[Rfam]
RNA sequence: UAUUAGGUUGGUGCCAAAGUAUCAUGGAUUUUGCCAUUAAAAUUAAUGGCAAAAUCCAUGAUACUUUGGCACCAACCUAAUA
Dot-bracket structure: (((((((((((((((((((((((((((((((((((((((....)))))))))))))))))))))))))))))))))))))))

Shown here is an 82-nucleotide sequence from Sapajus apella, a member of the family "mir-548 microRNA precursor family". Rfam links the family to the GO terms miRNA-mediated post-transcriptional gene silencing and RISC complex. On this family, see Witten et al., BMC Biol 2010: "Ultra-high throughput sequencing-based small RNA discovery and discrete statistical biomarker analysis in a collection of cervical tumours and matched controls". It scores 91 bits against the family's covariance model.